[Rfam]
RNA: SucA RNA motif
Organism: Polaromonas sp.
RNA sequence: UCGCAUCCGCUAACCGGUUCAGCCGUGACAAGCGGAAGGUUUAAUUAACCACUAAUGUUUCCCCAAGGGAAACGGAGGUCAGUC
Numbered sequence: 001u002c003g004c005a006u007c008c009g010c011u012a013a014c015c016g017g018u019u020c021a022g023c024c025g026u027g028a029c030a031a032g033c034g035g036a037a038g039g040u041u042u043a044a045u046u047a048a049c050c051a052c053u054a055a056u057g058u059u060u061c062c063c064c065a066a067g068g069g070a071a072a073c074g075g076a077g078g079u080c081a082g083u084c
Stems, first nucleotide, its partner, number of pairs: 003083002006036005015025004038050004051079003057073007